Shown here is a 167-nucleotide RNA sequence from Streptomyces cellostaticus, a member of the family "c-di-AMP riboswitch aptamer (ydaO/yuaA leader)". Rfam's curators write: This family represents a conserved RNA structure found upstream of the ydaO and yuaA genes in Bacillus subtilis and related genes in other bacteria. The ydaO/yuaA element is thought to act as a genetic 'off' switch for the ydaO and yuaA genes in its native state. It is believed that the element may be triggered during osmotic shock leading to activation of ydaO, a predicted amino acid transporter gene, and members of the yuaA-yubG operon which code for KtrA and KtrB K+ transporters. The organism belongs to Streptomyces, within Bacteria.

RNA sequence: CGUGCGCACGCGCCGAAUCCCGCAAGGGAACCGGGGAACCACCACCUUGGGGUGAAUCACGCGGAUGCCGUCGUGAACUGCUUGAGUCCACGACCGGUAUACGCGCGUAGGAGACCUUCCUGCUCCGAACCCGUCAGCUAACCCGGUAGGCGGAGGAAGGAAAGGAG
Numbered sequence: 001c002g003u004g005c006g007c008a009c010g011c012g013c014c015g016a017a018u019c020c021c022g023c024a025a026g027g028g029a030a031c032c033g034g035g036g037a038a039c040c041a042c043c044a045c046c047u048u049g050g051g052g053u054g055a056a057u058c059a060c061g062c063g064g065a066u067g068c069c070g071u072c073g074u075g076a077a078c079u080g081c082u083u084g085a086g087u088c089c090a091c092g093a094c095c096g097g098u099a100u101a102c103g104c105g106c107g108u109a110g111g112a113g114a115c116c117u118u119c120c121u122g123c124u125c126c127g128a129a130c131c132c133g134u135c136a137g138c139u140a141a142c143c144c145g146g147u148a149g150g151c152g153g154a155g156g157a158a159g160g161a162a163a164g165g166a167g
Base pairs, nucleotide, nucleotide: 011152012151013150014149018029019028020027030147031146032145033144034143035142040049041048050132051131052130058107060105061104062103063102110126111125112124113123